The record is a 73-nucleotide RNA from Medicago truncatula, which matches "MIR5272 microRNA precursor family" in Rfam. The base pairs follow the family's consensus structure, which was predicted with RNAalifold.

RNA sequence: CUGAAUGUGAAUUGAUUUAUGUUUGGAUAUACUAACCGAAAAGUGAUUCUUAUGAUUGAUGUUGUUUGGAUAG
Numbered sequence: 001c002u003g004a005a006u007g008u009g010a011a012u013u014g015a016u017u018u019a020u021g022u023u024u025g026g027a028u029a030u031a032c033u034a035a036c037c038g039a040a041a042a043g044u045g046a047u048u049c050u051u052a053u054g055a056u057u058g059a060u061g062u063u064g065u066u067u068g069g070a071u072a073g
Stems, first nucleotide, its partner, number of pairs: 011060005017055002021053002025049004030045004

Its family is annotated with RISC complex and miRNA-mediated post-transcriptional gene silencing in the Gene Ontology.